Shown here is a 174-nucleotide RNA from Shouchella lonarensis, a member of the family "Lysine riboswitch aptamer". The organism belongs to Shouchella, within Bacteria. Rfam's curators write: Riboswitches are metabolite binding domains within certain messenger RNAs that serve as precision sensors for their corresponding targets.
[Rfam]
RNA sequence: AGAUGGGGUAGAGGCGCAAAAAUGAUGAGUACAUGUUUCGGAGCGAGGACAGCGAUGAUGAAUGUGGAAAGGUAUUUUUGCCGAAGCUAAAAAGGGUGUCCGUCCUUUUUAAGCUGGGUCGACAUUGAAUAAGUGUCGGACUGUCACAGGAAACUGUGGAGAACUACUAUUGGA
Numbered sequence: 001a002g003a004u005g006g007g008g009u010a011g012a013g014g015c016g017c018a019a020a021a022a023u024g025a026u027g028a029g030u031a032c033a034u035g036u037u038u039c040g041g042a043g044c045g046a047g048g049a050c051a052g053c054g055a056u057g058a059u060g061a062a063u064g065u066g067g068a069a070a071g072g073u074a075u076u077u078u079u080g081c082c083g084a085a086g087c088u089a090a091a092a093a094g095g096g097u098g099u100c101c102g103u104c105c106u107u108u109u110u111a112a113g114c115u116g117g118g119u120c121g122a123c124a125u126u127g128a129a130u131a132a133g134u135g136u137c138g139g140a141c142u143g144u145c146a147c148a149g150g151a152a153a154c155u156g157u158g159g160a161g162a163a164c165u166a167c168u169a170u171u172g173g174a
Base pairs, nucleotide, nucleotide: 007168008167009166010165011164016081017080018079019078020077021076022075023074024073032066033065034064035063036062037061038060085115086114087113088112090110091109092108093107094106095105096104116142117141119139120138121137122136123135124134125133126132144159145158146157147156148155149154